[Rfam]
The family of this 134-nucleotide sequence from Pantherophis guttatus is "Small nucleolar RNA U109". A search with the family's covariance model found it, with a score of 61 bits. The base pairs follow the family's consensus structure, which was predicted with WAR. The organism belongs to Pantherophis, within Eukaryota. The literature on the family includes a 2005 paper in Nucleic Acids Res by Gu et al., "A novel experimental approach for systematic identification of box H/ACA snoRNAs from eukaryotes".
RNA sequence: CUGCAUGACGGAAGCUGUUAAUUCUUCUGCCUUCCAAGGAGAAUGAGUAUUCCUUCAGUGCUAUAAAACGAGGAGGUUUCAGAGCCGCCUACCUUGAAGCACAGGCUGCGUGGUGGUAUGCUUCUCCAACAUGA
Numbered sequence: 001c002u003g004c005a006u007g008a009c010g011g012a013a014g015c016u017g018u019u020a021a022u023u024c025u026u027c028u029g030c031c032u033u034c035c036a037a038g039g040a041g042a043a044u045g046a047g048u049a050u051u052c053c054u055u056c057a058g059u060g061c062u063a064u065a066a067a068a069c070g071a072g073g074a075g076g077u078u079u080c081a082g083a084g085c086c087g088c089c090u091a092c093c094u095u096g097a098a099g100c101a102c103a104g105g106c107u108g109c110g111u112g113g114u115g116g117u118a119u120g121c122u123u124c125u126c127c128a129a130c131a132u133g134a
Base pairs, nucleotide, nucleotide: 003061004060005059006058021044022043023042024041025040026039027038072127073126074125075124084114085113088110089108092105093104094103